Annotation
The record is a 312-nucleotide RNA sequence from Alaudala cheleensis, which matches "7SK RNA" in Rfam.
RNA sequence: GGAUAUGAGGGUAAUCUGGCUGUGAGAUCUGAUAUGCAUGGGUUGAUCUGACUGAUCUGGCUAGCUUAGGCAGGUGUUUGCUUUCUUCCUCAACACUCCAUGUUCUUCCUGAUGCUGUGUGCUUGGCUAAUGAGGACAGCCUCUCCAAUAGACAUGGUAUUGUUCAUUGGUCAAGGGUGUGUGGUAGUUGUGCUCUCUUGCUAGAAGCUCUAAGUAAACUCAAGGUCCAUUUGUAGAUGAAUGUAGGGUAGUCAAGCAUCUGAUACUGAAGACAUAUCCCAAUGAGAAACUGCAUGCAGCAGUCUGCCAGUG
Number, nucleotide and partner (000 for none) at each position: 001g099002g098003a097004u000005a000006u092007g091008a090009g089010g088011g087012u000013a084014a083015u000016c000017u000018g081019g000020c000021u000022g000023u000024g078025a077026g000027a075028u074029c073030u072031g071032a000033u069034a000035u063036g000037c059038a058039u000040g000041g057042g056043u055044u054045g052046a000047u000048c000049u000050g000051a000052c045053u000054g044055a043056u042057c041058u038059g037060g000061c000062u000063a035064g000065c000066u000067u000068a000069g033070g000071c031072a030073g029074g028075u027076g000077u025078u024079u000080g000081c018082u000083u014084u013085c000086u000087u011088c010089c009090u008091c007092a006093a000094c000095a000096c000097u003098c002099c001100a000101u000102g000103u000104u156105c000106u000107u152108c151109c126110u125111g124112a123113u000114g122115c121116u000117g000118u000119g000120u000121g115122c114123u112124u111125g110126g109127c000128u147129a000130a000131u000132g000133a000134g144135g143136a142137c000138a000139g000140c000141c000142u136143c135144u134145c000146c000147a128148a000149u000150a000151g108152a107153c000154a000155u000156g104157g000158u000159a000160u000161u000162g000163u000164u000165c000166a000167u000168u000169g000170g000171u000172c000173a000174a000175g000176g000177g000178u000179g000180u000181g000182u000183g000184g000185u000186a000187g257188u256189u255190g000191u000192g000193c251194u250195c000196u248197c247198u246199u245200g244201c243202u000203a000204g000205a000206a000207g000208c239209u000210c000211u236212a000213a000214g234215u233216a232217a231218a230219c000220u000221c000222a000223a000224g000225g000226u000227c000228c000229a000230u218231u217232u216233g215234u214235a000236g211237a000238u000239g208240a000241a000242u000243g201244u200245a199246g198247g197248g196249u000250a194251g193252u000253c000254a000255a189256g188257c187258a000259u000260c000261u000262g000263a000264u000265a000266c000267u000268g000269a000270a000271g000272a000273c000274a000275u000276a000277u000278c000279c000280c000281a000282a000283u000284g000285a000286g308287a000288a000289a303290c302291u301292g300293c299294a000295u000296g000297c000298a000299g293300c292301a291302g290303u289304c000305u000306g000307c000308c286309a000310g000311u000312g000
Source information
For this family Rfam cites "Transcription: surprising role for an elusive small nuclear RNA" (Blencowe, Curr Biol, 2002). The match comes from Rfam's covariance-model search (138 bits). By type it is a non-coding RNA gene. The source organism's lineage runs through Eukaryota, Eumetazoa, Passeriformes, Sylvioidea and Alaudala.